[Rfam]
RNA sequence: UUAAGCUAUGUUUUGAGUAUCCUGAAACGGGCUUUUCAAGAUACAUAGCUUUACAAUACUCUAGGAGUGCAAAUGGCCCGUAUUGCAGGCGUUAACAUUCCUGAU
Numbered sequence: 001u002u003a004a005g006c007u008a009u010g011u012u013u014u015g016a017g018u019a020u021c022c023u024g025a026a027a028c029g030g031g032c033u034u035u036u037c038a039a040g041a042u043a044c045a046u047a048g049c050u051u052u053a054c055a056a057u058a059c060u061c062u063a064g065g066a067g068u069g070c071a072a073a074u075g076g077c078c079c080g081u082a083u084u085g086c087a088g089g090c091g092u093u094a095a096c097a098u099u100c101c102u103g104a105u
Stems, first nucleotide, its partner, number of pairs: 004050008021089003028080004036104003
Dot-bracket structure: ...((((((((.........[[[....[[[[....{{{....))))))))..........................]]]]......]]]............}}}.

Rfam assigns this 105-nucleotide RNA from Psittacicella melopsittaci to the family "Alpha operon ribosome binding site". Rfam links the family to the GO term ribosome binding. The base pairs follow the family's consensus structure, which is taken from published work. About the family: The bacterial alpha operon ribosome binding site is surrounded by this complex pseudoknotted structure. A search with the family's covariance model found it, with a score of 91 bits. The source organism's lineage runs through Bacteria, Pseudomonadati, Gammaproteobacteria, Psittacicellaceae and Psittacicella.